[Rfam]
RNA sequence: UAAAAGGGUCGGUUGGCUAAAUGUGCCACGCCCGCCCUUCGCAGGCGGGUGCUGUAUGGCUAUCAAGACAUAUGGCCGACAUAAUUUGUGGACCCCCAGAGGGUUGGCCCGCCCGGCCGACCCUAUCA
Numbered sequence: 001u002a003a004a005a006g007g008g009u010c011g012g013u014u015g016g017c018u019a020a021a022u023g024u025g026c027c028a029c030g031c032c033c034g035c036c037c038u039u040c041g042c043a044g045g046c047g048g049g050u051g052c053u054g055u056a057u058g059g060c061u062a063u064c065a066a067g068a069c070a071u072a073u074g075g076c077c078g079a080c081a082u083a084a085u086u087u088g089u090g091g092a093c094c095c096c097c098a099g100a101g102g103g104u105u106g107g108c109c110c111g112c113c114c115g116g117c118c119g120a121c122c123c124u125a126u127c128a
Stems, first nucleotide, its partner, number of pairs: 008080005014028004029051008052075007098126001100124010
Dot-bracket structure: .......(((((.((((.......))))((((((((.......))))))))(((((((..........)))))))))))).................(.((((((((((.....)))))))))).)..
RNA: U11 spliceosomal RNA